[Rfam]
RNA: Streptomyces sRNA 4677
Organism: Streptomyces venezuelae
RNA sequence: GUCUCGGUCGCCCGCGUCACCCAAAGAAAAAGGACCGGAUGAGAACCCACCCAACCAAUCCCCGUCCUCACACGCUCGGGUGACAGAUCGUCCGGAAACCGGACAGCUGCGGUACGGUCGGCCCCGACAACCUCAUAAACGCAUUCGGCCCCCGACAGGACUGCAAUCCUGACGAGGGCCUGACCAAUCUGGAAGAGAGAAGCUUCCCG
Numbered sequence: 001g002u003c004u005c006g007g008u009c010g011c012c013c014g015c016g017u018c019a020c021c022c023a024a025a026g027a028a029a030a031a032g033g034a035c036c037g038g039a040u041g042a043g044a045a046c047c048c049a050c051c052c053a054a055c056c057a058a059u060c061c062c063c064g065u066c067c068u069c070a071c072a073c074g075c076u077c078g079g080g081u082g083a084c085a086g087a088u089c090g091u092c093c094g095g096a097a098a099c100c101g102g103a104c105a106g107c108u109g110c111g112g113u114a115c116g117g118u119c120g121g122c123c124c125c126g127a128c129a130a131c132c133u134c135a136u137a138a139a140c141g142c143a144u145u146c147g148g149c150c151c152c153c154g155a156c157a158g159g160a161c162u163g164c165a166a167u168c169c170u171g172a173c174g175a176g177g178g179c180c181u182g183a184c185c186a187a188u189c190u191g192g193a194a195g196a197g198a199g200a201a202g203c204u205u206c207c208c209g
Stems, first nucleotide, its partner, number of pairs: 001185001007055002010052001068083004073078001092121004147180005153174002157170004191207005